[Rfam]
RNA: Archaeal small subunit ribosomal RNA, nucleotides 506 to 864
RNA sequence: GGCCUAAAGCGUCCGUAGCCCGCCAGGUAAGUUUAUCGGGAAAUCUACGUGCUCAACGCGUAGGCGGCCGGUGAAACCUGCCUGGCUUGGGACUGGACGGCUCGAGGGGUACGACCGGGGUAGGAGUGAAAUCCUAUAAUCCUGGUCGGACCACCGGUGGCGAAAGCGCCUCGAGAGGACAGAUCCGACGGUGAGGGACGAAAGCCAAGGUCACGAACCGGAUUAGAUACCCGGGUAGUCUUGGCCGUAAACGAUGCCCGUUAGGUGUGGCACAGGCUACGAGCCUGUGCUGUGCCGCAGUGAAGACGAUAAACGGGCCGCCUGGGAAGUACGUCCGCAAGGAUGAAACUUAAAGGAAU
Numbered sequence: 001g002g003c004c005u006a007a008a009g010c011g012u013c014c015g016u017a018g019c020c021c022g023c024c025a026g027g028u029a030a031g032u033u034u035a036u037c038g039g040g041a042a043a044u045c046u047a048c049g050u051g052c053u054c055a056a057c058g059c060g061u062a063g064g065c066g067g068c069c070g071g072u073g074a075a076a077c078c079u080g081c082c083u084g085g086c087u088u089g090g091g092a093c094u095g096g097a098c099g100g101c102u103c104g105a106g107g108g109g110u111a112c113g114a115c116c117g118g119g120g121u122a123g124g125a126g127u128g129a130a131a132u133c134c135u136a137u138a139a140u141c142c143u144g145g146u147c148g149g150a151c152c153a154c155c156g157g158u159g160g161c162g163a164a165a166g167c168g169c170c171u172c173g174a175g176a177g178g179a180c181a182g183a184u185c186c187g188a189c190g191g192u193g194a195g196g197g198a199c200g201a202a203a204g205c206c207a208a209g210g211u212c213a214c215g216a217a218c219c220g221g222a223u224u225a226g227a228u229a230c231c232c233g234g235g236u237a238g239u240c241u242u243g244g245c246c247g248u249a250a251a252c253g254a255u256g257c258c259c260g261u262u263a264g265g266u267g268u269g270g271c272a273c274a275g276g277c278u279a280c281g282a283g284c285c286u287g288u289g290c291u292g293u294g295c296c297g298c299a300g301u302g303a304a305g306a307c308g309a310u311a312a313a314c315g316g317g318c319c320g321c322c323u324g325g326g327a328a329g330u331a332c333g334u335c336c337g338c339a340a341g342g343a344u345g346a347a348a349c350u351u352a353a354a355g356g357a358a359u
Stems, first nucleotide, its partner, number of pairs: 001322003009319001011199004016193001018192003022086007030079002032075008045063007090186003093182003098177001101175007108152002112148008123134003160167002204245006213239002218234004256318006264296014300307002324351003333344004